The record is a 145-nucleotide sequence from Gossypium laxum, which matches "MIR7502 microRNA precursor family" in Rfam.
The family has 6 seed sequences and 74,505 matches in Rfam 15.1.
Gene Ontology terms of the family: miRNA-mediated post-transcriptional gene silencing and RISC complex.
Lineage of the source: Eukaryota > Viridiplantae > Streptophytina > malvids > Gossypium.
RNA sequence: UGUUAAAAUUUUCAUUCAUUUCUACUGUUAAUAAUUAACAUGGCUGAUGAAAUAACCAGACAGUUAUACGUGAUAUGUUACGUACACUUCAUGCUGAUGUACAAGGACCAAUUUUUAACUAUAGAAAUUGAUAAAAUUUUUAACA
Numbered sequence: 001u002g003u004u005a006a007a008a009u010u011u012u013c014a015u016u017c018a019u020u021u022c023u024a025c026u027g028u029u030a031a032u033a034a035u036u037a038a039c040a041u042g043g044c045u046g047a048u049g050a051a052a053u054a055a056c057c058a059g060a061c062a063g064u065u066a067u068a069c070g071u072g073a074u075a076u077g078u079u080a081c082g083u084a085c086a087c088u089u090c091a092u093g094c095u096g097a098u099g100u101a102c103a104a105g106g107a108c109c110a111a112u113u114u115u116u117a118a119c120u121a122u123a124g125a126a127a128u129u130g131a132u133a134a135a136a137u138u139u140u141u142a143a144c145a
Stems, first nucleotide, its partner, number of pairs: 002144007010136003014132003018128007028118004033113001